[Rfam]
The family of this 82-nucleotide sequence is "tRNA".
By type it is a transfer RNA.
Rfam links the family to the GO term triplet codon-amino acid adaptor activity.
RNA sequence: GUAGUCGUGGCCGAGUGGUUAAGGCGAUGGACUAGAAAUCCAUUGGGGUCUCCCCGCGCAGGUUCGAAUCCUGCCGACUACG
Number, nucleotide and partner (000 for none) at each position: 001g081002u080003a079004g078005u077006c076007g075008u000009g000010g025011c024012c023013g000014a000015g000016u000017g000018g000019u000020u000021a000022a000023g012024g011025c010026g000027a043028u042029g041030g040031a039032c000033u000034a000035g000036a000037a000038a000039u031040c030041c029042a028043u027044u000045g000046g000047g000048g000049u000050c000051u000052c000053c000054c000055c000056g000057c000058g074059c073060a072061g071062g070063u000064u000065c000066g000067a000068a000069u000070c062071c061072u060073g059074c058075c007076g006077a005078c004079u003080a002081c001082g000